[Rfam]
Notes:
mir-1788 microRNA precursor family: a 77-nucleotide sequence from Ophiophagus hannah. The sequence is in the family's curated seed alignment.
RNA sequence: GCUUGUACUGGGCUUGUUUUCAGUUGCCUGCGGCUGGCUAAUAGGACUCAGGCAGCUAAAGCAAGCCUGGGGCAUGA
Numbered sequence: 001g002c003u004u005g006u007a008c009u010g011g012g013c014u015u016g017u018u019u020u021c022a023g024u025u026g027c028c029u030g031c032g033g034c035u036g037g038c039u040a041a042u043a044g045g046a047c048u049c050a051g052g053c054a055g056c057u058a059a060a061g062c063a064a065g066c067c068u069g070g071g072g073c074a075u076g077a
Stems, first nucleotide, its partner, number of pairs: 004074001006072001008070001010068011022057009032047001
Gene Ontology terms of the family: RISC complex and miRNA-mediated post-transcriptional gene silencing.
The base pairs follow the family's consensus structure, which was predicted with RNAalifold.